[Rfam]
Shown here is a 107-nucleotide RNA, a member of the family "DUF3800-I RNA". Rfam classes the family as a small RNA. The sequence is in the family's curated seed alignment. From the family's description: Actinobacteria, Firmicutes, Fusobacteria, Proteobacteria (1 example), Tenericutes (2 examples).
RNA sequence: UGGAGUUGCAGGUAGAUAUACGCUGUAUACCCGUGUAACCGAAUUUACGUUUAAGUGUCAUGUAAUGGCACCGGUCACGGGGCCGCCGUAAGGCGGUUUUUUAGUUA
Numbered sequence: 001u002g003g004a005g006u007u008g009c010a011g012g013u014a015g016a017u018a019u020a021c022g023c024u025g026u027a028u029a030c031c032c033g034u035g036u037a038a039c040c041g042a043a044u045u046u047a048c049g050u051u052u053a054a055g056u057g058u059c060a061u062g063u064a065a066u067g068g069c070a071c072c073g074g075u076c077a078c079g080g081g082g083c084c085g086c087c088g089u090a091a092g093g094c095g096g097u098u099u100u101u102u103a104g105u106u107a
Base pairs, nucleotide, nucleotide: 007027008026009025010024011023012021013020014019030081031080032079033078034077035076038075039074040073041072042051043050044049055071056070057069058068059067060066082097083096084095085094086093087092